[Rfam]
RNA: mir-515 microRNA precursor family
Organism: Cebus imitator
Nucleotides: 087
Base pairs, nucleotide, nucleotide: 001087002086003085004084005083008080010078011077013075014074016072017071018070020068021067022066023065024064025063026062028060029059030058031057032056033055034054035053038052
Number, partner (000 for none) and nucleotide at each position: 001087u002086c003085u004084c005083a006000a007000a008080c009000a010078g011077u012000a013075a014074u015000c016072c017071u018070c019000u020068a021067c022066a023065a024064g025063g026062a027000u028060g029059c030058a031057c032056u033055u034054u035053c036000u037000u038052u039000u040000c041000u042000u043000u044000c045000u046000g047000a048000c049000a050000a051000c052038a053035g054034g055033a056032a057031g058030u059029g060028c061000u062026u063025c064024c065023u066022u067021g068020u069000a070018g071017a072016g073000g074014g075013u076000c077011a078010c079000g080008g081000c082000c083005u084004g085003a086002g087001a